[Rfam]
RNA sequence: AACCACACUAUCGAUGAAUGAAUUCACCCGCAAGAUGAUGUGGAUGUUUCACUUAGGACGAGGACAUAGCAUCCUAUUACCAGCCAUCGCACGAAAUUAAUAGGAUGUCACAUCCUCAUCCUAAUGGAACAACCACAUCAUCUCACGGGUGAAUCCGUUCAUCGAUAAUGUGUUU
Numbered sequence: 001a002a003c004c005a006c007a008c009u010a011u012c013g014a015u016g017a018a019u020g021a022a023u024u025c026a027c028c029c030g031c032a033a034g035a036u037g038a039u040g041u042g043g044a045u046g047u048u049u050c051a052c053u054u055a056g057g058a059c060g061a062g063g064a065c066a067u068a069g070c071a072u073c074c075u076a077u078u079a080c081c082a083g084c085c086a087u088c089g090c091a092c093g094a095a096a097u098u099a100a101u102a103g104g105a106u107g108u109c110a111c112a113u114c115c116u117c118a119u120c121c122u123a124a125u126g127g128a129a130c131a132a133c134c135a136c137a138u139c140a141u142c143u144c145a146c147g148g149g150u151g152a153a154u155c156c157g158u159u160c161a162u163c164g165a166u167a168a169u170g171u172g173u174u175u
Stems, first nucleotide, its partner, number of pairs: 001175002004172004009167007017159003022154007030146001033143001035141005041135003045131004051125001054123002057120002063114002069108011086097002
RNA: MIR807 microRNA precursor family
Organism: Oryza sativa